[Rfam]
RNA: Bacterial RNase P class A
RNA sequence: GCGGAGGGCCGGAUGGCCGCUUCGGCGGGGUGACCCGCCGGGGAGGAAAGUCCGGACUCCCUGAAGCAACGGUGCCGGGUAACGCCCGGGCGGGGCAACCCGACGGAAAGCGCCACAGAAAACAGACCGCCUCCGGCCUGGCCGGGGGUAAGGGUGAAACGGUGGAGUAAGAGACCACCGCGUCCCUGGCAACAGGGGCGGCACGGCAAGCCCCACCGGGAGCAAUGCCGAAUAGGACCCCCGCGCGGAACCGGUCUUCGGGCCACCGCUAGGCUCGCUUCAGCCGAGAGGGGUCGGGUUGGCAGCUCAAGGGCCGUGGCAACACGUCCCGUAGAGGAAUGGUCAUCGACGGGGGCAACCCCUGAACAGAAUCCGGCUUACAGGCCCUCCGCGCGU
Numbered sequence: 001g002c003g004g005a006g007g008g009c010c011g012g013a014u015g016g017c018c019g020c021u022u023c024g025g026c027g028g029g030g031u032g033a034c035c036c037g038c039c040g041g042g043g044a045g046g047a048a049a050g051u052c053c054g055g056a057c058u059c060c061c062u063g064a065a066g067c068a069a070c071g072g073u074g075c076c077g078g079g080u081a082a083c084g085c086c087c088g089g090g091c092g093g094g095g096c097a098a099c100c101c102g103a104c105g106g107a108a109a110g111c112g113c114c115a116c117a118g119a120a121a122a123c124a125g126a127c128c129g130c131c132u133c134c135g136g137c138c139u140g141g142c143c144g145g146g147g148g149u150a151a152g153g154g155u156g157a158a159a160c161g162g163u164g165g166a167g168u169a170a171g172a173g174a175c176c177a178c179c180g181c182g183u184c185c186c187u188g189g190c191a192a193c194a195g196g197g198g199c200g201g202c203a204c205g206g207c208a209a210g211c212c213c214c215a216c217c218g219g220g221a222g223c224a225a226u227g228c229c230g231a232a233u234a235g236g237a238c239c240c241c242c243g244c245g246c247g248g249a250a251c252c253g254g255u256c257u258u259c260g261g262g263c264c265a266c267c268g269c270u271a272g273g274c275u276c277g278c279u280u281c282a283g284c285c286g287a288g289a290g291g292g293g294u295c296g297g298g299u300u301g302g303c304a305g306c307u308c309a310a311g312g313g314c315c316g317u318g319g320c321a322a323c324a325c326g327u328c329c330c331g332u333a334g335a336g337g338a339a340u341g342g343u344c345a346u347c348g349a350c351g352g353g354g355g356c357a358a359c360c361c362c363u364g365a366a367c368a369g370a371a372u373c374c375g376g377c378u379u380a381c382a383g384g385c386c387c388u389c390c391g392c393g394c395g396u
Base pairs, nucleotide, nucleotide: 001392002391003390004389005388006387007386008385009384010383011381012347013346014345015344016343017342018341020043021042022041023040024039025038026037027036028035048379049378050377052376053375054374055373056372057222058221059220060219068280070218071217072216073215074214075089076088077087078086079085090104091102092101093100094099105213106212110211111210112207113206114205127153128152129149130148131147132146133145134144135143136142137141161179162178163177164176165175180202181200182199183198184197185196186195187194188193226304227303228302229301236295237294238293239292240291241290274288275287276286277285311330312329313328315326316325317324318323